[Rfam]
The family of this 102-nucleotide RNA sequence from Halalkalibacter krulwichiae is "Purine riboswitch aptamer".
The organism belongs to Halalkalibacter, within Bacteria.
The family's consensus secondary structure is taken from published work.
The match comes from Rfam's covariance-model search (93 bits).
From the family's description: Riboswitches are metabolite binding domains within certain messenger RNAs that serve as precision sensors for their corresponding targets.
RNA sequence: CAAACAAUUUAAUAUUCAACUCGUAUAAUAUUGGGAAUAUGGCCCGAAAGUUUCUACCAAGCUACCGUAAAUGGCUUGACUACGAGUGAUGGAAUGACAUUU
Numbered sequence: 001c002a003a004a005c006a007a008u009u010u011a012a013u014a015u016u017c018a019a020c021u022c023g024u025a026u027a028a029u030a031u032u033g034g035g036a037a038u039a040u041g042g043c044c045c046g047a048a049a050g051u052u053u054c055u056a057c058c059a060a061g062c063u064a065c066c067g068u069a070a071a072u073g074g075c076u077u078g079a080c081u082a083c084g085a086g087u088g089a090u091g092g093a094a095u096g097a098c099a100u101u102u
Stems, first nucleotide, its partner, number of pairs: 019087007029049001031047005058078007